[Rfam]
RNA sequence: CGUUCGAAAAGGCAAACUUAUUGAAAAAUAAGGGCGCAAAGUUACAGGCCUAAAGGAGAUACUCUAUGGUGGCUGAACUGCCAAC
Numbered sequence: 001c002g003u004u005c006g007a008a009a010a011g012g013c014a015a016a017c018u019u020a021u022u023g024a025a026a027a028a029u030a031a032g033g034g035c036g037c038a039a040a041g042u043u044a045c046a047g048g049c050c051u052a053a054a055g056g057a058g059a060u061a062c063u064c065u066a067u068g069g070u071g072g073c074u075g076a077a078c079u080g081c082c083a084a085c
Stems, first nucleotide, its partner, number of pairs: 012037002017032006040079004045075003048070003055064002
RNA: c-di-GMP-I riboswitch aptamer
Organism: Aquibacillus koreensis